[Rfam]
RNA sequence: UUGCUGUAACGGCACAUGGCGGAAUGGUCAAAUAUGGCGGCUCUGAAGCUGUUGUCACAUUUCUGUGUCCGGUUCGACUCCUGCGGCGCGUGGAGCAUGCCUUGAGUAAUCGGGUUAUGCUUGUAGUGUCGUAAAUUACAGGGGACCGCUGAAGGGUAGAAAUACAGCACAGCGCCUGUUCCGUGGGAGGGCGACACCGGACUGCACGGACUUGGCUACGGCAACAGCUGGAGCUGCUGGUUGGUCUUAACCGCAGUC
Numbered sequence: 001u002u003g004c005u006g007u008a009a010c011g012g013c014a015c016a017u018g019g020c021g022g023a024a025u026g027g028u029c030a031a032a033u034a035u036g037g038c039g040g041c042u043c044u045g046a047a048g049c050u051g052u053u054g055u056c057a058c059a060u061u062u063c064u065g066u067g068u069c070c071g072g073u074u075c076g077a078c079u080c081c082u083g084c085g086g087c088g089c090g091u092g093g094a095g096c097a098u099g100c101c102u103u104g105a106g107u108a109a110u111c112g113g114g115u116u117a118u119g120c121u122u123g124u125a126g127u128g129u130c131g132u133a134a135a136u137u138a139c140a141g142g143g144g145a146c147c148g149c150u151g152a153a154g155g156g157u158a159g160a161a162a163u164a165c166a167g168c169a170c171a172g173c174g175c176c177u178g179u180u181c182c183g184u185g186g187g188a189g190g191g192c193g194a195c196a197c198c199g200g201a202c203u204g205c206a207c208g209g210a211c212u213u214g215g216c217u218a219c220g221g222c223a224a225c226a227g228c229u230g231g232a233g234c235u236g237c238u239g240g241u242u243g244g245u246c247u248u249a250a251c252c253g254c255a256g257u258c
Stems, first nucleotide, its partner, number of pairs: 002014003017256001019254004027246001029244001031242003035239004040234003047229010059213001062210007069200005074194003078189009088130001089128003092124001094122001095120005100114003104111002138179005147174005156165003
The family of this 258-nucleotide RNA from Pichia inconspicua is "Fungal signal recognition particle RNA". The source organism's lineage runs through Eukaryota, Opisthokonta, saccharomyceta, Saccharomycotina and Pichia. Gene Ontology terms of the family: SRP-dependent cotranslational protein targeting to membrane, signal sequence recognition, signal recognition particle, plasma membrane targeting and signal recognition particle, endoplasmic reticulum targeting. The match comes from Rfam's covariance-model search (112 bits). Its Rfam clan is "SRP clan". For this family Rfam cites "Towards the structure of the mammalian signal recognition particle" (Wild et al., Curr Opin Struct Biol, 2002). It is annotated as a non-coding RNA gene. The base pairs follow the family's consensus structure, which is taken from published work.